[Rfam]
Annotation:
Rfam assigns this 93-nucleotide RNA from Yoonia vestfoldensis to the family "Rhodo-rpoB RNA".
RNA sequence: AAGUCGGGAGGCAGCCGGUGGGACGGCAGCCACGAAUAGACUUGAAACCCCCGGUCAAAUGGAUGUGGCGGCGCAGCCCGGGCGCCGCACGUU
Numbered sequence: 001a002a003g004u005c006g007g008g009a010g011g012c013a014g015c016c017g018g019u020g021g022g023a024c025g026g027c028a029g030c031c032a033c034g035a036a037u038a039g040a041c042u043u044g045a046a047a048c049c050c051c052c053g054g055u056c057a058a059a060u061g062g063a064u065g066u067g068g069c070g071g072c073g074c075a076g077c078c079c080g081g082g083c084g085c086c087g088c089a090c091g092u093u
Stems, first nucleotide, its partner, number of pairs: 001043005010031003014027004065092003068088006
Source information
Rfam classes the family as a cis-regulatory element. Rfam's curators put it in the seed alignment.